[Rfam]
RNA sequence: GAACGUUCUCAGGGCGGGGUGCAAUUCCCCACCGGCGGUAGAUCGGUCGUCAUGUCCGAAAGCCCGCGAGCGGCCUUCCUGAACGGGAAGGCUUAGCUGAUCCGGUGUAAUUCCGGAGCCGACGGUAUAGUCCGGAUGGAAGAGAACACUG
Numbered sequence: 001g002a003a004c005g006u007u008c009u010c011a012g013g014g015c016g017g018g019g020u021g022c023a024a025u026u027c028c029c030c031a032c033c034g035g036c037g038g039u040a041g042a043u044c045g046g047u048c049g050u051c052a053u054g055u056c057c058g059a060a061a062g063c064c065c066g067c068g069a070g071c072g073g074c075c076u077u078c079c080u081g082a083a084c085g086g087g088a089a090g091g092c093u094u095a096g097c098u099g100a101u102c103c104g105g106u107g108u109a110a111u112u113c114c115g116g117a118g119c120c121g122a123c124g125g126u127a128u129a130g131u132c133c134g135g136a137u138g139g140a141a142g143a144g145a146a147c148a149c150u151g
Stems, first nucleotide, its partner, number of pairs: 005147006017029003031131002033121002035067004062119002070097002101117005123134003
RNA: FMN riboswitch aptamer (RFN element)
Organism: Acetobacter oeni